[Rfam]
RNA sequence: UGACCCAUGGUGUAAUGGUAACACUGCAGAUUUUGGUUCUGUCAUUCCAGGUUCGAAUCCUGGUGGGUCAA
Number, nucleotide and partner (000 for none) at each position: 001u070002g069003a068004c067005c066006c065007a064008u000009g000010g024011u023012g022013u021014a000015a000016u000017g000018g000019u000020a000021a013022c012023a011024c010025u000026g042027c041028a040029g039030a038031u000032u000033u000034u000035g000036g000037u000038u030039c029040u028041g027042u026043c000044a000045u000046u000047c063048c062049a061050g060051g059052u000053u000054c000055g000056a000057a000058u000059c051060c050061u049062g048063g047064u007065g006066g005067g004068u003069c002070a001071a000